[Rfam]
RNA sequence: UUGCAGCCAAUUAAGCCAACCAUGCUCUUUUCCCCGCGGGGGGCCCGGUGUGCAAUGGCUGCAAACAGCAGCCUCCUCCGUAUUGUAUGCAGCCUGUUGCCUGUAUGGGUUGCCCUAAGAGACCCUGGGAACAGCC
Numbered sequence: 001u002u003g004c005a006g007c008c009a010a011u012u013a014a015g016c017c018a019a020c021c022a023u024g025c026u027c028u029u030u031u032c033c034c035c036g037c038g039g040g041g042g043g044c045c046c047g048g049u050g051u052g053c054a055a056u057g058g059c060u061g062c063a064a065a066c067a068g069c070a071g072c073c074u075c076c077u078c079c080g081u082a083u084u085g086u087a088u089g090c091a092g093c094c095u096g097u098u099g100c101c102u103g104u105a106u107g108g109g110u111u112g113c114c115c116u117a118a119g120a121g122a123c124c125c126u127g128g129g130a131a132c133a134g135c136c
Stems, first nucleotide, its partner, number of pairs: 002054004019049003025043004080123002090112006
This 136-nucleotide RNA sequence from Balaenoptera musculus belongs to the Rfam family "Small nucleolar RNA SNORA70". Lineage of the source: Eukaryota > Opisthokonta > Metazoa > Mammalia > Balaenoptera. The family's consensus secondary structure was predicted with PFOLD. snoRNA U70 seems to be exclusive to mammals and is a member of the H/ACA class of snoRNA which contain H (ANANNA) and ACA box motifs. H/ACA box snoRNAs are involved in the conversion of uridines to pseudouridines (5-ribosyluracil) a constituent of structural RNAs (transfer, ribosomal, small nuclear, and small nucleolar). Rfam classes the family as an H/ACA-box small nucleolar RNA. The family has 43 seed sequences and 5,173 matches in Rfam 15.1. For this family Rfam cites "Pseudouridine in RNA: what, where, how, and why" (Charette and Gray, IUBMB Life, 2000).